[Rfam]
RNA sequence: GAUAGGACCCUGUCGUUGCCGUGAUUGGACACUGACACAGAGUCAACUAGCCUUGUGCGCGCGGUUCUUCGCGCGUGGAACCGCGGCGGUCCGAGCCACGAGGGGGGAGGCUCGGACCGCCAUCG
Numbered sequence: 001g002a003u004a005g006g007a008c009c010c011u012g013u014c015g016u017u018g019c020c021g022u023g024a025u026u027g028g029a030c031a032c033u034g035a036c037a038c039a040g041a042g043u044c045a046a047c048u049a050g051c052c053u054u055g056u057g058c059g060c061g062c063g064g065u066u067c068u069u070c071g072c073g074c075g076u077g078g079a080a081c082c083g084c085g086g087c088g089g090u091c092c093g094a095g096c097c098a099c100g101a102g103g104g105g106g107g108a109g110g111c112u113c114g115g116a117c118c119g120c121c122a123u124c125g
Stems, first nucleotide, its partner, number of pairs: 001014005015051004021032003033045004058075007076083002085121013099106001
Shown here is a 125-nucleotide RNA sequence from Streptomyces lacrimifluminis, a member of the family "Streptomyces RNA 3920". On this family, see Vockenhuber et al., RNA Biol 2011: "Deep sequencing-based identification of small non-coding RNAs in Streptomyces coelicolor". Identified by deep sequencing of transcriptome at the end of exponential growth phase. Sequencing size consistent with northern blot size. Streptomyces specific. It scores 137 bits against the family's covariance model.